Annotation: The family of this 116-nucleotide RNA from Robertmurraya siralis is "PyrR binding site".
RNA sequence: AACCUUUUUAAGUGUAGUCCAGAGAGGCUAGCAAAAGGAAGAAUAGUAUAAGGGGCAGCCCCUUAUGCUAUUACGCCUAGCCUCUUUGAAAGGAAUUUUCAAAGAGGUAUUUUUAU
Numbered sequence: 001a002a003c004c005u006u007u008u009u010a011a012g013u014g015u016a017g018u019c020c021a022g023a024g025a026g027g028c029u030a031g032c033a034a035a036a037g038g039a040a041g042a043a044u045a046g047u048a049u050a051a052g053g054g055g056c057a058g059c060c061c062c063u064u065a066u067g068c069u070a071u072u073a074c075g076c077c078u079a080g081c082c083u084c085u086u087u088g089a090a091a092g093g094a095a096u097u098u099u100c101a102a103a104g105a106g107g108u109a110u111u112u113u114u115a116u
Stems, first nucleotide, its partner, number of pairs: 003038006015030005043071013080108011
The family has 41 seed sequences and 1,498 matches in Rfam 15.1. The family's RNA type in Rfam is cis-regulatory element. Rfam links the family to the GO terms pyrimidine nucleobase transport and pyrimidine nucleobase biosynthetic process.